Shown here is a 50-nucleotide RNA sequence from Schisandra sphenanthera, a member of the family "Plastid-psbA-4 3UTR RNA". From the family's description: Plastid psbA-4 is a non-coding RNA (ncRNA) present in plastids. It was identified in inverted repeat sequences in the 3 prime untranslate region (3UTR) of photosystem II quinone-binding protein (psbA). It is one of the family's seed sequences. The source organism's lineage runs through Eukaryota, Streptophyta, Austrobaileyales, Schisandraceae and Schisandra. It is annotated as a cis-regulatory element. The family is grouped with related families in Rfam's "Plastid-psbA 3UTR RNA clan". The family's consensus secondary structure was predicted with LocARNA. For this family Rfam cites "Retrograde signaling in plants: A critical review focusing on the GUN pathway and beyond" (Richter et al., Plant Commun, 2023).
RNA sequence: ACAAUACAAUAACCAAUUUCUUGUUUUCUCAAGAGGUUUGAUAUUGUAUU
Numbered sequence: 001a002c003a004a005u006a007c008a009a010u011a012a013c014c015a016a017u018u019u020c021u022u023g024u025u026u027u028c029u030c031a032a033g034a035g036g037u038u039u040g041a042u043a044u045u046g047u048a049u050u
Stems, first nucleotide, its partner, number of pairs: 003050009015038002018035006